[Rfam]
RNA sequence: GAGCAAUGAUGAUUCUGGUGGUGAAUGUGGUGAUGGGUUCAUCACUAACAGCUACAUUUGUGGCGAAAACUUCCACAUCUGAGCUC
Number, nucleotide and partner (000 for none) at each position: 001g086002a085003g084004c083005a000006a000007u000008g000009a000010u000011g000012a000013u000014u000015c000016u000017g000018g000019u000020g000021g000022u000023g000024a000025a000026u000027g000028u000029g000030g000031u000032g000033a000034u000035g000036g000037g000038u000039u000040c000041a000042u000043c000044a000045c000046u000047a000048a000049c000050a000051g000052c000053u000054a000055c000056a000057u000058u000059u000060g000061u000062g000063g000064c000065g000066a000067a000068a000069a000070c000071u000072u000073c000074c000075a000076c000077a000078u000079c000080u000081g000082a000083g004084c003085u002086c001
A member of the RNA family "small nucleolar RNA snoR114" from Cicer arietinum, 86 nucleotides long. Taxonomically the source falls in Cicer (Eukaryota, Streptophytina, Fabales, Papilionoideae). The match comes from Rfam's covariance-model search (52 bits).